RNA sequence: AAAACUAAAUGUCUCCGAGUCUAUAAUUCCUUCAAGUAUUUUGCUUAUGGAGUAUAGACCCGUAGGGUAUAGCUAGAAAUAGUUGUGCCUCCCAUUGUGGAAAGGAGCCAUGGCAAAAUAACU
Numbered sequence: 001a002a003a004a005c006u007a008a009a010u011g012u013c014u015c016c017g018a019g020u021c022u023a024u025a026a027u028u029c030c031u032u033c034a035a036g037u038a039u040u041u042u043g044c045u046u047a048u049g050g051a052g053u054a055u056a057g058a059c060c061c062g063u064a065g066g067g068u069a070u071a072g073c074u075a076g077a078a079a080u081a082g083u084u085g086u087g088c089c090u091c092c093c094a095u096u097g098u099g100g101a102a103a104g105g106a107g108c109c110a111u112g113g114c115a116a117a118a119u120a121a122c123u
Stems, first nucleotide, its partner, number of pairs: 011109001013107004019059006026053005034046004065090011091100002
RNA: Molybdenum/Tungsten riboswitch aptamer (Moco RNA motif)
Organism: Andreesenella acetica